[Rfam]
RNA: Eukaryotic large subunit ribosomal RNA, nucleotides 1354 to 1786
Organism: Blastocystis hominis
RNA sequence: GGUAGUAGCAAAUACUUCAAUGAGAACUUGAAGGACCGAAGUGGGGAAAGGUUCCAUGUGAACAGCGGUUGGACAUGGGUUAGUCGAUCCUAAGCUAUAGGGAAGUUCCGUUUCAAAGGCGCACUUUGCGCCGUCUAGCGAAAGGGGAGCCGGUCAAUAUUCCGGCACCUGGAUGUGGGUUUUGCGCGGCAACGCAACUGAACGUGGAGACGACGGCGGGGGCCCCAAGCAGAGUUCUCUUUUCUUCUUAACAGUCUCUCACCCUGAAAUCGGUUUGUCCGGAGCUAGGGUUUAAUGGCUGGAAGAGCCCGGCACCUCUGCCGGGUUUGGUGCGCUCUCGACGUCCCUUGAAAAUCCACGGGAAGAAAUAAUUCUCACGCCAGGUCGUACUCAUAACCGCAGCAGGUCUCCAAGGUGAACAGCCUCUGGUUGA
Numbered sequence: 001g002g003u004a005g006u007a008g009c010a011a012a013u014a015c016u017u018c019a020a021u022g023a024g025a026a027c028u029u030g031a032a033g034g035a036c037c038g039a040a041g042u043g044g045g046g047a048a049a050g051g052u053u054c055c056a057u058g059u060g061a062a063c064a065g066c067g068g069u070u071g072g073a074c075a076u077g078g079g080u081u082a083g084u085c086g087a088u089c090c091u092a093a094g095c096u097a098u099a100g101g102g103a104a105g106u107u108c109c110g111u112u113u114c115a116a117a118g119g120c121g122c123a124c125u126u127u128g129c130g131c132c133g134u135c136u137a138g139c140g141a142a143a144g145g146g147g148a149g150c151c152g153g154u155c156a157a158u159a160u161u162c163c164g165g166c167a168c169c170u171g172g173a174u175g176u177g178g179g180u181u182u183u184g185c186g187c188g189g190c191a192a193c194g195c196a197a198c199u200g201a202a203c204g205u206g207g208a209g210a211c212g213a214c215g216g217c218g219g220g221g222g223c224c225c226c227a228a229g230c231a232g233a234g235u236u237c238u239c240u241u242u243u244c245u246u247c248u249u250a251a252c253a254g255u256c257u258c259u260c261a262c263c264c265u266g267a268a269a270u271c272g273g274u275u276u277g278u279c280c281g282g283a284g285c286u287a288g289g290g291u292u293u294a295a296u297g298g299c300u301g302g303a304a305g306a307g308c309c310c311g312g313c314a315c316c317u318c319u320g321c322c323g324g325g326u327u328u329g330g331u332g333c334g335c336u337c338u339c340g341a342c343g344u345c346c347c348u349u350g351a352a353a354a355u356c357c358a359c360g361g362g363a364a365g366a367a368a369u370a371a372u373u374c375u376c377a378c379g380c381c382a383g384g385u386c387g388u389a390c391u392c393a394u395a396a397c398c399g400c401a402g403c404a405g406g407u408c409u410c411c412a413a414g415g416u417g418a419a420c421a422g423c424c425u426c427u428g429g430u431u432g433a
Stems, first nucleotide, its partner, number of pairs: 015033006034431004043411004049391002054078006063071002085387003089145002094139002097111002100109003119131003149166005169383004174379005179373001186195003203360006212345004217340007225330003228248002231245003252301005261291006270282004308325007397406002413425004